This 75-nucleotide RNA sequence belongs to the Rfam family "ASpks TB sRNA".
The family's consensus secondary structure is taken from published work.
RNA sequence: CUUCAGUGAACCGAUCCAGACCGGACGGUCCCCAGGUCGGCCCUGCCCAUACGUGGCCAGCAGCGCCUGCGCCUC
Numbered sequence: 001c002u003u004c005a006g007u008g009a010a011c012c013g014a015u016c017c018a019g020a021c022c023g024g025a026c027g028g029u030c031c032c033c034a035g036g037u038c039g040g041c042c043c044u045g046c047c048c049a050u051a052c053g054u055g056g057c058c059a060g061c062a063g064c065g066c067c068u069g070c071g072c073c074u075c
Stems, first nucleotide, its partner, number of pairs: 015025003031071001033069001038065002043060003047056003